Shown here is a 284-nucleotide sequence from Ammoniphilus sp. CFH 90114, a member of the family "BsrG". The family has 6 seed sequences and 614 matches in Rfam 15.1. The family's consensus secondary structure was predicted with WAR. The literature on the family includes a 2016 paper in RNA Biol by Muller et al., "A multistress responsive type I toxin-antitoxin system: bsrE/SR5 from the B. subtilis chromosome". About the family: bsrE, bsrG and bsrH pair through intermolecular interactions with antisense sRNAs.

RNA sequence: AGCAAUUACAUAUUGCAGGGUGGGCGGUUGGCCACUCCCCUAUAGAAGGGAGGUGGUAACAUGACGGCGUAUGAAGCAAUAAUGAUAGCACUCACAUCAAAUUUAGUUUUGAUAGGAGUUAUUACAAUUGCUGUGAUGAUCGUCGUACAUAGAAAAAAGUAACCGCCCCGCUCACGGCCAAGAGAAUAGGGUAGUUACUUUUUCCUAAUUACAUCUAAACUUUCAAGGUCAGCCGCUCUUCAUGCGGCAUGUAGUUGCGCAGUCAGGUGUUAGCAGCACCUGAC
Numbered sequence: 001a002g003c004a005a006u007u008a009c010a011u012a013u014u015g016c017a018g019g020g021u022g023g024g025c026g027g028u029u030g031g032c033c034a035c036u037c038c039c040c041u042a043u044a045g046a047a048g049g050g051a052g053g054u055g056g057u058a059a060c061a062u063g064a065c066g067g068c069g070u071a072u073g074a075a076g077c078a079a080u081a082a083u084g085a086u087a088g089c090a091c092u093c094a095c096a097u098c099a100a101a102u103u104u105a106g107u108u109u110u111g112a113u114a115g116g117a118g119u120u121a122u123u124a125c126a127a128u129u130g131c132u133g134u135g136a137u138g139a140u141c142g143u144c145g146u147a148c149a150u151a152g153a154a155a156a157a158a159g160u161a162a163c164c165g166c167c168c169c170g171c172u173c174a175c176g177g178c179c180a181a182g183a184g185a186a187u188a189g190g191g192u193a194g195u196u197a198c199u200u201u202u203u204c205c206u207a208a209u210u211a212c213a214u215c216u217a218a219a220c221u222u223u224c225a226a227g228g229u230c231a232g233c234c235g236c237u238c239u240u241c242a243u244g245c246g247g248c249a250u251g252u253a254g255u256u257g258c259g260c261a262g263u264c265a266g267g268u269g270u271u272a273g274c275a276g277c278a279c280c281u282g283a284c
Stems, first nucleotide, its partner, number of pairs: 002258004007253003011249001013232003016227001018173007026164004033056001037052001039050003063144005076091001184215001233247004262284010
The organism belongs to Ammoniphilus, within Bacteria.